[Rfam]
A member of the RNA family "Group II catalytic intron D1-D4-6" from Mariniphaga anaerophila, 215 nucleotides long. A search with the family's covariance model found it, with a score of 122 bits.

RNA sequence: CAAGCCUGUACGGAAAGGCUUAGCCAGCCACCGGAAGCGAGCCUUGCGUAGUCAUUAGAGAUGAUGGCACGAAGUGUAGGCAGCGAUUGUCAAAGGUAUGCUAUGUAGCCUCGAAAGAAAGAUGAAUGCCGGGGUCUUAACUGUUCAUCUGGUUGGGACAACACGAAAAGCAGCGAUUUGGCGAGUUGUUGGAGCCUGGCCGGGGUCUGAGACCA
Dot-bracket structure: ........(.(((...(((([.[[.)))).))).).((..(((((((((..((((((....)))))).)))...)).)))).)).......................((((((..............(((((((((..((((........))))..)))....(....((((((......]].]))))))...))))))))))))).........
Numbered sequence: 001c002a003a004g005c006c007u008g009u010a011c012g013g014a015a016a017g018g019c020u021u022a023g024c025c026a027g028c029c030a031c032c033g034g035a036a037g038c039g040a041g042c043c044u045u046g047c048g049u050a051g052u053c054a055u056u057a058g059a060g061a062u063g064a065u066g067g068c069a070c071g072a073a074g075u076g077u078a079g080g081c082a083g084c085g086a087u088u089g090u091c092a093a094a095g096g097u098a099u100g101c102u103a104u105g106u107a108g109c110c111u112c113g114a115a116a117g118a119a120a121g122a123u124g125a126a127u128g129c130c131g132g133g134g135u136c137u138u139a140a141c142u143g144u145u146c147a148u149c150u151g152g153u154u155g156g157g158a159c160a161a162c163a164c165g166a167a168a169a170g171c172a173g174c175g176a177u178u179u180g181g182c183g184a185g186u187u188g189u190u191g192g193a194g195c196c197u198g199g200c201c202g203g204g205g206u207c208u209g210a211g212a213c214c215a
Stems, first nucleotide, its partner, number of pairs: 009035001011033003017029004021184001023182002037084002041081004045076002047071003052067006108206006128200006134159003139154004164194001169190006